[Rfam]
RNA sequence: CGCUGAUUGUGGCAACACAUGCAGUGAUCGAACAGGAAUCAACAGAGGUCAUAGUAGGUGUAGGAAUACGUCAUUGACAGAGUGAC
Numbered sequence: 001c002g003c004u005g006a007u008u009g010u011g012g013c014a015a016c017a018c019a020u021g022c023a024g025u026g027a028u029c030g031a032a033c034a035g036g037a038a039u040c041a042a043c044a045g046a047g048g049u050c051a052u053a054g055u056a057g058g059u060g061u062a063g064g065a066a067u068a069c070g071u072c073a074u075u076g077a078c079a080g081a082g083u084g085a086c
Stems, first nucleotide, its partner, number of pairs: 001026002004023002008019004039046002048086003058078002062074001
Rfam assigns this 86-nucleotide RNA from Desulfoluna spongiiphila to the family "Group II catalytic intron D1-D4-1". Rfam describes the family as follows. Group II introns are found in rRNA, tRNA and mRNA of organelles in fungi, plants and protists, and also in mRNA in bacteria. Taxonomically the source falls in Desulfoluna (Bacteria, Desulfobacteria, Desulfobacterales, Desulfolunaceae). On this family, see Chu et al., EMBO J 2001: "Control of branch-site choice by a group II intron". Its family is annotated with Group II intron splicing in the Gene Ontology.